[Rfam]
RNA sequence: CAGGUUGAUCAAGUGCCCUGGUUUGCCUGGGGCUGAGGGUUUUUCCAGGGCAGGGGACUUUCUUUCAGUUCUGGGCAAACCAGGGUGGUUGGUCACCCUAGUGAUAA
Dot-bracket structure: .(((.(((((((.((...((((((((((((((((((....(.(......).)............))))))))))))))))))...)).))))))).)))........